[Rfam]
Record summary:
Rfam assigns this 77-nucleotide sequence from Parnassius apollo to the family "Mammalian CPEB3 ribozyme".
RNA sequence: CUAGAAUUCUAGAGGGUCAUUGUAGAAGCGUGCUCGUCACGACCCCUGCCAGCCCUUUUCAGGGCUGCAAUUCUACA
Numbered sequence: 001c002u003a004g005a006a007u008u009c010u011a012g013a014g015g016g017u018c019a020u021u022g023u024a025g026a027a028g029c030g031u032g033c034u035c036g037u038c039a040c041g042a043c044c045c046c047u048g049c050c051a052g053c054c055c056u057u058u059u060c061a062g063g064g065c066u067g068c069a070a071u072u073c074u075a076c077a
Base pairs, nucleotide, nucleotide: 014045015044016043017042018041021077022076023075024074025073026072027071028040030038050067051066052065053064054063055062056061
The match comes from Rfam's covariance-model search (54 bits). Lineage of the source: Eukaryota > Opisthokonta > Insecta > Neolepidoptera > Parnassius.